The family of this 97-nucleotide RNA sequence from Edwardsiella hoshinae is "TPP riboswitch aptamer (THI element)". About the family: Vitamin B(1) in its active form thiamin pyrophosphate (TPP) is an essential coenzyme that is synthesised by coupling of pyrimidine and thiazole moieties in bacteria. The family's consensus secondary structure is taken from published work.
[Rfam]
RNA sequence: UAACAUGACUCGGGGUGCCCUUCUUUGUGAAGGCUGAGAAAUACCCGUAUUACCUGAUCUGGAUAAUGCCAGCGUAGGGAAGUCACGGUGUCUGACC
Numbered sequence: 001u002a003a004c005a006u007g008a009c010u011c012g013g014g015g016u017g018c019c020c021u022u023c024u025u026u027g028u029g030a031a032g033g034c035u036g037a038g039a040a041a042u043a044c045c046c047g048u049a050u051u052a053c054c055u056g057a058u059c060u061g062g063a064u065a066a067u068g069c070c071a072g073c074g075u076a077g078g079g080a081a082g083u084c085a086c087g088g089u090g091u092c093u094g095a096c097c
Stems, first nucleotide, its partner, number of pairs: 006085005011047004016041001017034003021030001053078004059072004